[Rfam]
RNA sequence: AUGGCCGUGAUGAUUGGCGCAGGGGUACGGACCUCGGCUGGAUCAUGGGAGCUGAGUGCAGACUGGUGGUUUCAGUGCAGCUGGCGCGUGGCUGGCUCACUGCAAACGGGUCUGCAUGAGACUUUGCCAAAAGCUGAGCCAU
Numbered sequence: 001a002u003g004g005c006c007g008u009g010a011u012g013a014u015u016g017g018c019g020c021a022g023g024g025g026u027a028c029g030g031a032c033c034u035c036g037g038c039u040g041g042a043u044c045a046u047g048g049g050a051g052c053u054g055a056g057u058g059c060a061g062a063c064u065g066g067u068g069g070u071u072u073c074a075g076u077g078c079a080g081c082u083g084g085c086g087c088g089u090g091g092c093u094g095g096c097u098c099a100c101u102g103c104a105a106a107c108g109g110g111u112c113u114g115c116a117u118g119a120g121a122c123u124u125u126g127c128c129a130a131a132a133g134c135u136g137a138g139c140c141a142u
Base pairs, nucleotide, nucleotide: 001142002141003140004139005138
Shown here is a 142-nucleotide sequence from Oxyruncus cristatus, a member of the family "Small nucleolar RNA SNORD94". Rfam classes the family as a C/D-box small nucleolar RNA. The family has 21 seed sequences and 802 matches in Rfam 15.1. Taxonomically the source falls in Oxyruncus (Eukaryota, Theropoda, Aves, Cotingidae). The family's consensus secondary structure was predicted with RNAalifold.